RNA sequence: ACAACAACAAAAACAAGCAGAGCUAACCCAAUAAAAACAACAGCAACUCCGGAAAAAUAACAACAACAAGUACAGGGAGAGUAAGCUAACUGAUUUUUUUGGAGAGGAUGCCGGUGGCUUAAUCGCCUCCUGAUGCCAGUAGAGAACAACAAAACUGCUUAACAAGGCAGCGACAUACUGGGAUUUGCUUGCGGCAUAAGUUCCAAAGCAAUCCGUUUGGCAUUUAAUGCCCGGCUUCGGGCAUUCGUAUUUCGUUUGUUGGGGUAAUAAAAACAACAACCCAACAAAACAAUAAAAACCAUUGUUGAUAUUGGGAGGCCAUGCCUCCCAUUGGUUUUUCCGCGCUAUUUCUGCCCUAUCGUC
Numbered sequence: 001a002c003a004a005c006a007a008c009a010a011a012a013a014c015a016a017g018c019a020g021a022g023c024u025a026a027c028c029c030a031a032u033a034a035a036a037a038c039a040a041c042a043g044c045a046a047c048u049c050c051g052g053a054a055a056a057a058u059a060a061c062a063a064c065a066a067c068a069a070g071u072a073c074a075g076g077g078a079g080a081g082u083a084a085g086c087u088a089a090c091u092g093a094u095u096u097u098u099u100u101g102g103a104g105a106g107g108a109u110g111c112c113g114g115u116g117g118c119u120u121a122a123u124c125g126c127c128u129c130c131u132g133a134u135g136c137c138a139g140u141a142g143a144g145a146a147c148a149a150c151a152a153a154a155c156u157g158c159u160u161a162a163c164a165a166g167g168c169a170g171c172g173a174c175a176u177a178c179u180g181g182g183a184u185u186u187g188c189u190u191g192c193g194g195c196a197u198a199a200g201u202u203c204c205a206a207a208g209c210a211a212u213c214c215g216u217u218u219g220g221c222a223u224u225u226a227a228u229g230c231c232c233g234g235c236u237u238c239g240g241g242c243a244u245u246c247g248u249a250u251u252u253c254g255u256u257u258g259u260u261g262g263g264g265u266a267a268u269a270a271a272a273a274c275a276a277c278a279a280c281c282c283a284a285c286a287a288a289a290c291a292a293u294a295a296a297a298a299c300c301a302u303u304g305u306u307g308a309u310a311u312u313g314g315g316a317g318g319c320c321a322u323g324c325c326u327c328c329c330a331u332u333g334g335u336u337u338u339u340c341c342g343c344g345c346u347a348u349u350u351c352u353g354c355c356c357u358a359u360c361g362u363c
Base pairs, nucleotide, nucleotide: 047079048078049077050076097208098207099206100205101204136181137180138179139178155170156169157168158167159166227244228243229242230241231240257344258343259342261340262282263281264280298335299334300333301332312330313329314328315327316326317325318324319323
The family of this 363-nucleotide sequence from Ventosimonas gracilis is "Pseudomonas sRNA CrcZ". For this family Rfam cites "Identification of 17 Pseudomonas aeruginosa sRNAs and prediction of sRNA-encoding genes in 10 diverse pathogens using the bioinformatic tool sRNAPredict2" (Livny et al., Nucleic Acids Res, 2006). Rfam 15.1 lists 127 matches to the family in 96 species. NCBI's taxonomy places the organism under Bacteria, Pseudomonadati, Pseudomonadales, Ventosimonadaceae, Ventosimonas. A search with the family's covariance model found it, with a score of 153 bits.